[Rfam]
RNA: Phenylalanine leader peptide
Organism: Diaphorina citri
RNA sequence: UUUGAAUCUUUUAUUAUUAUCUUUUUCUUUUCUGUUUUUCACCGAAAAAACACUCGUACCGGGCCCAAGGCAGGUGAAAAACAGAAAAGAAAAAGAUAAUAAUAAAAGAUUCAAAUUUGAAUCUUUUAUUAU
Numbered sequence: 001u002u003u004g005a006a007u008c009u010u011u012u013a014u015u016a017u018u019a020u021c022u023u024u025u026u027c028u029u030u031u032c033u034g035u036u037u038u039u040c041a042c043c044g045a046a047a048a049a050a051c052a053c054u055c056g057u058a059c060c061g062g063g064c065c066c067a068a069g070g071c072a073g074g075u076g077a078a079a080a081a082c083a084g085a086a087a088a089g090a091a092a093a094a095g096a097u098a099a100u101a102a103u104a105a106a107a108g109a110u111u112c113a114a115a116u117u118u119g120a121a122u123c124u125u126u127u128a129u130u131a132u
Stems, first nucleotide, its partner, number of pairs: 016100004021095014036080008104127010